[Rfam]
RNA sequence: UUAGAUACAUGAUAACCUCACUUCAACUUAAACUCUCUUACAGGUUACUUGGUGACAAUAAAAGAUCAGAUUUCUGU
Numbered sequence: 001u002u003a004g005a006u007a008c009a010u011g012a013u014a015a016c017c018u019c020a021c022u023u024c025a026a027c028u029u030a031a032a033c034u035c036u037c038u039u040a041c042a043g044g045u046u047a048c049u050u051g052g053u054g055a056c057a058a059u060a061a062a063a064g065a066u067c068a069g070a071u072u073u074c075u076g077u
Stems, first nucleotide, its partner, number of pairs: 002076004007071001
Rfam assigns this 77-nucleotide RNA from Carlito syrichta to the family "Small nucleolar RNA SNORD81". The family's RNA type in Rfam is C/D-box small nucleolar RNA. NCBI's taxonomy places the organism under Eukaryota, Vertebrata, Boreoeutheria, Euarchontoglires, Carlito. The family has 22 seed sequences and 317 matches in Rfam 15.1. Its Rfam clan is "SNORD26 clan".